Archaeal large subunit ribosomal RNA: a 249-nucleotide part of an RNA from Natronoarchaeum philippinense. Gene Ontology terms of the family: ribosome and structural constituent of ribosome.
RNA sequence: GGAACCUGCCGGGAACGUUCGUAUAGUACGAGAGGAACUACGAAUGGGUGCCACUGGUGUAUCAGCUGUCCGCAAGGGCACGUGCUGAGCAGCCACGCACCACGGGGUAACGGCUGAACGCAUCUAAGCCGGAAACCCACCUGAAAACGAGGUUCCAUUGGACGGCUUGUAGAAGACAAGCUCGAUAGACUCGGGAUGUACGCGUCGAGGCAACGAGACGUUGAGUCCGCGAGCACUAAGCAAGUCCUG
Numbered sequence: 001g002g003a004a005c006c007u008g009c010c011g012g013g014a015a016c017g018u019u020c021g022u023a024u025a026g027u028a029c030g031a032g033a034g035g036a037a038c039u040a041c042g043a044a045u046g047g048g049u050g051c052c053a054c055u056g057g058u059g060u061a062u063c064a065g066c067u068g069u070c071c072g073c074a075a076g077g078g079c080a081c082g083u084g085c086u087g088a089g090c091a092g093c094c095a096c097g098c099a100c101c102a103c104g105g106g107g108u109a110a111c112g113g114c115u116g117a118a119c120g121c122a123u124c125u126a127a128g129c130c131g132g133a134a135a136c137c138c139a140c141c142u143g144a145a146a147a148c149g150a151g152g153u154u155c156c157a158u159u160g161g162a163c164g165g166c167u168u169g170u171a172g173a174a175g176a177c178a179a180g181c182u183c184g185a186u187a188g189a190c191u192c193g194g195g196a197u198g199u200a201c202g203c204g205u206c207g208a209g210g211c212a213a214c215g216a217g218a219c220g221u222u223g224a225g226u227c228c229g230c231g232a233g234c235a236c237u238a239a240g241c242a243a244g245u246c247c248u249g
Stems, first nucleotide, its partner, number of pairs: 001156007010143004016046008047101005055095003062088005067080005104138003111131005163244001164241001165181005186238003190233004194228003202221005209214001
The source organism's lineage runs through Archaea, Methanobacteriati, Methanobacteriota, Halobacteria and Natronoarchaeum.